The record is a 77-nucleotide RNA sequence from Sus scrofa, which matches "mir-30 microRNA precursor family" in Rfam. The organism belongs to Sus, within Eukaryota.
RNA sequence: UGAGCGGCUGUAAACAUCCUCGACUGGAAGCUGUGAGGCUGAAGACGGGCUUUCAGUCGGAUGUUUGCAGCCGCCGA
Numbered sequence: 001u002g003a004g005c006g007g008c009u010g011u012a013a014a015c016a017u018c019c020u021c022g023a024c025u026g027g028a029a030g031c032u033g034u035g036a037g038g039c040u041g042a043a044g045a046c047g048g049g050c051u052u053u054c055a056g057u058c059g060g061a062u063g064u065u066u067g068c069a070g071c072c073g074c075c076g077a
Stems, first nucleotide, its partner, number of pairs: 004074003008070012023057010

Record summary:
Rfam 15.1 lists 3,879 matches to the family in 647 species. This family consists of the mammalian microRNA (miRNA) precursor mir-30a.